[Rfam]
RNA sequence: AUAAGAAAAAGGGCUGUGGUAAGACCUACCUAUCAUCGACCCUCUAUCAAUCGCGGUCUGAGUCUUGGGAGGAAGAGUUCCUAGGCGCACCAUCGGUUCGCAGCCACCUGGCAACCUAAGCAGGCGCAAAGCCCAACGGGACGUCAGGGACAGGAACAAUUAGACGCGGAACUGACAAGAAAGCAGGGCUAACCGCCCUGCUUUUUUUU
Dot-bracket structure: ..((((....(((..........................))).........((((.......(((.....)))...(((((..(((((...........)).))).((((((..............................))))))....))))).......)))).............((((((((.....))))))))...))))
Numbered sequence: 001a002u003a004a005g006a007a008a009a010a011g012g013g014c015u016g017u018g019g020u021a022a023g024a025c026c027u028a029c030c031u032a033u034c035a036u037c038g039a040c041c042c043u044c045u046a047u048c049a050a051u052c053g054c055g056g057u058c059u060g061a062g063u064c065u066u067g068g069g070a071g072g073a074a075g076a077g078u079u080c081c082u083a084g085g086c087g088c089a090c091c092a093u094c095g096g097u098u099c100g101c102a103g104c105c106a107c108c109u110g111g112c113a114a115c116c117u118a119a120g121c122a123g124g125c126g127c128a129a130a131g132c133c134c135a136a137c138g139g140g141a142c143g144u145c146a147g148g149g150a151c152a153g154g155a156a157c158a159a160u161u162a163g164a165c166g167c168g169g170a171a172c173u174g175a176c177a178a179g180a181a182a183g184c185a186g187g188g189c190u191a192a193c194c195g196c197c198c199u200g201c202u203u204u205u206u207u208u209u
Stems, first nucleotide, its partner, number of pairs: 003209004011042003052168004063073003077157005084105003087101002107148006182202008
Record summary:
A member of the RNA family "Alphaproteobacterial sRNA ar9" from Roseibium limicola, 209 nucleotides long. On this family, see del Val et al., RNA Biol 2012: "A survey of sRNA families in alpha-proteobacteria".